[Rfam]
RNA: Bacterial RNase P class A
RNA sequence: GAAAGUAGGCGUAGGCGGUUGCGGACUCCCCAAAAGAGUCUGAGGAAAGUCCGGGCUCCCGAAAGACCGAACUUGCUGGGUAACGCCCAGUGCGGGCGACCGUGAGGAUAGUGCCACAGAAACAUACCGCCGAUGGAGGGAAACAUCACCCCUCACAGGUAAGGGUGCAAAGGUGCGGUAAGAGCGCACCAGCAAUAUCGAGAGGUAUUGGCUCGGUAAACCCCGGUUGGGAGCAAGGUCAAAGGAACCACGGUUGGUCUUUUCCCAGUUCCGCCAUCAAAACGUACCGCUCGAGGCGUCUGGUAACAGGCGUCCCAGAUAGAUAACCGCCCCCCUUUGGCCUCAAAACCAAAGGGGAACAGAACCCGGCUUACUACCGACUUUCUCCC
Numbered sequence: 001g002a003a004a005g006u007a008g009g010c011g012u013a014g015g016c017g018g019u020u021g022c023g024g025a026c027u028c029c030c031c032a033a034a035a036g037a038g039u040c041u042g043a044g045g046a047a048a049g050u051c052c053g054g055g056c057u058c059c060c061g062a063a064a065g066a067c068c069g070a071a072c073u074u075g076c077u078g079g080g081u082a083a084c085g086c087c088c089a090g091u092g093c094g095g096g097c098g099a100c101c102g103u104g105a106g107g108a109u110a111g112u113g114c115c116a117c118a119g120a121a122a123c124a125u126a127c128c129g130c131c132g133a134u135g136g137a138g139g140g141a142a143a144c145a146u147c148a149c150c151c152c153u154c155a156c157a158g159g160u161a162a163g164g165g166u167g168c169a170a171a172g173g174u175g176c177g178g179u180a181a182g183a184g185c186g187c188a189c190c191a192g193c194a195a196u197a198u199c200g201a202g203a204g205g206u207a208u209u210g211g212c213u214c215g216g217u218a219a220a221c222c223c224c225g226g227u228u229g230g231g232a233g234c235a236a237g238g239u240c241a242a243a244g245g246a247a248c249c250a251c252g253g254u255u256g257g258u259c260u261u262u263u264c265c266c267a268g269u270u271c272c273g274c275c276a277u278c279a280a281a282a283c284g285u286a287c288c289g290c291u292c293g294a295g296g297c298g299u300c301u302g303g304u305a306a307c308a309g310g311c312g313u314c315c316c317a318g319a320u321a322g323a324u325a326a327c328c329g330c331c332c333c334c335c336u337u338u339g340g341c342c343u344c345a346a347a348a349c350c351a352a353a354g355g356g357g358a359a360c361a362g363a364a365c366c367c368g369g370c371u372u373a374c375u376a377c378c379g380a381c382u383u384u385c386u387c388c389c
Stems, first nucleotide, its partner, number of pairs: 001385006008378002011374001014331007022042007047372003051369005056233004070228003074225002076090005091105001092103004106223002111221002113217003127164002129160003134155003172190006192212001193210007237288003295314008